Description: A member of the RNA family "Small nucleolar RNA Z122" from Morella rubra, 88 nucleotides long. The literature on the family includes a 2003 paper in Nucleic Acids Res by Chen et al., "The high diversity of snoRNAs in plants: identification and comparative study of 120 snoRNA genes from Oryza sativa". The base pairs follow the family's consensus structure, which was predicted with PFOLD.

RNA sequence: CAUGGGAAAUGAUGCCAAGAUUCAAACAGUUGUUCAGAGGCGCCAGCUCUGCUGGAAUAGUAUUUUUGCACGUCAGUCUGCUCCCAUA
Numbered sequence: 001c002a003u004g005g006g007a008a009a010u011g012a013u014g015c016c017a018a019g020a021u022u023c024a025a026a027c028a029g030u031u032g033u034u035c036a037g038a039g040g041c042g043c044c045a046g047c048u049c050u051g052c053u054g055g056a057a058u059a060g061u062a063u064u065u066u067u068g069c070a071c072g073u074c075a076g077u078c079u080g081c082u083c084c085c086a087u088a
Stems, first nucleotide, its partner, number of pairs: 002087006
It is annotated as a C/D-box small nucleolar RNA.